[Rfam]
RNA sequence: GUUGGUUGUGAAUAACCCUUGGCUUUGAUUGUGGCUGUGGAUGAAAUUCAGCACCUAGAGCCACCAGUAGCCUUAGCUCACCACCCACUGUCUCAAUGUCAUGGGUAAAACCCAGGCUCUGACAGGC
Numbered sequence: 001g002u003u004g005g006u007u008g009u010g011a012a013u014a015a016c017c018c019u020u021g022g023c024u025u026u027g028a029u030u031g032u033g034g035c036u037g038u039g040g041a042u043g044a045a046a047u048u049c050a051g052c053a054c055c056u057a058g059a060g061c062c063a064c065c066a067g068u069a070g071c072c073u074u075a076g077c078u079c080a081c082c083a084c085c086c087a088c089u090g091u092c093u094c095a096a097u098g099u100c101a102u103g104g105g106u107a108a109a110a111c112c113c114a115g116g117c118u119c120u121g122a123c124a125g126g127c
Stems, first nucleotide, its partner, number of pairs: 005052004010047001013044001015042001021036004067120001069118005078108001080106003087099002
RNA: Small nucleolar RNA ACA64